[Rfam]
RNA sequence: GGAAUUCCGGCUGAACCUGUCUCCUCCCAAGGGUUCAGUCGGCUGGUCGGCUCUUCCUCCUCCUCCCAAAAGCCGACCCUUUUUGCGACACCCGCCGGUUCCUCCCCCGGCGGGUGUCUCUG
Numbered sequence: 001g002g003a004a005u006u007c008c009g010g011c012u013g014a015a016c017c018u019g020u021c022u023c024c025u026c027c028c029a030a031g032g033g034u035u036c037a038g039u040c041g042g043c044u045g046g047u048c049g050g051c052u053c054u055u056c057c058u059c060c061u062c063c064u065c066c067c068a069a070a071a072g073c074c075g076a077c078c079c080u081u082u083u084u085g086c087g088a089c090a091c092c093c094g095c096c097g098g099u100u101c102c103u104c105c106c107c108c109g110g111c112g113g114g115u116g117u118c119u120c121u122g
Stems, first nucleotide, its partner, number of pairs: 007042003011038007045078008054069001088117011
RNA: Alphaproteobacterial ar14
Organism: Oryzicola mucosus